[Rfam]
RNA sequence: CACCUCCAGAUCCCUUUCCCAUCAGAUCGGAACACUGAUCUCAUGGUCAAAAAAGGAGGGACAGUAAAAGGCAAGUUGGCCUCAUCCUCUCUGCUAGAACAAUCCUGCACUGAGCGAGGCUGACUUGGAACAUAA
Numbered sequence: 001c002a003c004c005u006c007c008a009g010a011u012c013c014c015u016u017u018c019c020c021a022u023c024a025g026a027u028c029g030g031a032a033c034a035c036u037g038a039u040c041u042c043a044u045g046g047u048c049a050a051a052a053a054a055g056g057a058g059g060g061a062c063a064g065u066a067a068a069a070g071g072c073a074a075g076u077u078g079g080c081c082u083c084a085u086c087c088u089c090u091c092u093g094c095u096a097g098a099a100c101a102a103u104c105c106u107g108c109a110c111u112g113a114g115c116g117a118g119g120c121u122g123a124c125u126u127g128g129a130a131c132a133u134a135a
Base pairs, nucleotide, nucleotide: 003059004058005057006056007055019046020045021044022043025040026039027038028037076123077122078121079120080119081118082117